[Rfam]
Nucleotides: 062
Stems, first nucleotide, its partner, number of pairs: 008041001010039001012036004016031004022060006
Number, partner (000 for none) and nucleotide at each position: 001000u002000a003000g004000g005000g006000g007000a008041g009000a010039u011000g012036g013035g014034g015033c016031c017030g018029g019028g020000a021000a022060c023059c024058c025057c026056u027055c028019c029018c030017c031016g032000a033015g034014c035013c036012c037000a038000g039010g040000g041008u042000a043000a044000c045000c046000u047000u048000a049000a050000a051000a052000g053000u054000g055027g056026a057025g058024g059023g060022g061000a062000c